RNA sequence: CCAAUGGACGGCUAGGGUUCCGGUCACAUCGCUCAAUCCCCCAGAUGUGACGCCAGGUCCGAGAGCCGUCGACCCGGCAUCAGCAGGAAGAGGGUUCGUCCAGGACGACUCUUGCCGAUGCAAGGUUACACGGCGGGACAAAAGCCCGGGAGGA
Numbered sequence: 001c002c003a004a005u006g007g008a009c010g011g012c013u014a015g016g017g018u019u020c021c022g023g024u025c026a027c028a029u030c031g032c033u034c035a036a037u038c039c040c041c042c043a044g045a046u047g048u049g050a051c052g053c054c055a056g057g058u059c060c061g062a063g064a065g066c067c068g069u070c071g072a073c074c075c076g077g078c079a080u081c082a083g084c085a086g087g088a089a090g091a092g093g094g095u096u097c098g099u100c101c102a103g104g105a106c107g108a109c110u111c112u113u114g115c116c117g118a119u120g121c122a123a124g125g126u127u128a129c130a131c132g133g134c135g136g137g138a139c140a141a142a143a144g145c146c147c148g149g150g151a152g153g154a
Base pairs, nucleotide, nucleotide: 007070008069009068010067011066012065015060016059020057021056022054023051024050025049026048027047028046029045030044071127072126073125074124077121078120079119080118081117129149131152135147136146137145